RNA sequence: CCGCCCCGCAAGGCCGACGGCAUCCCGCCGCCGCUGGUGCAAGCCCAGCCGCCCCAAGCCGGGGCGGGCGCUCAUGGGGUUUUA
Numbered sequence: 001c002c003g004c005c006c007c008g009c010a011a012g013g014c015c016g017a018c019g020g021c022a023u024c025c026c027g028c029c030g031c032c033g034c035u036g037g038u039g040c041a042a043g044c045c046c047a048g049c050c051g052c053c054c055c056a057a058g059c060c061g062g063g064g065c066g067g068g069c070g071c072u073c074a075u076g077g078g079g080u081u082u083u084a
Stems, first nucleotide, its partner, number of pairs: 004079004013069003018030003033049004050066006
Source information:
This 84-nucleotide sequence belongs to the Rfam family "Twister_sister_ribozyme". Pairs were carried over by alignment from the consensus structure, which is taken from published work. Rfam links the family to the GO term catalytic activity.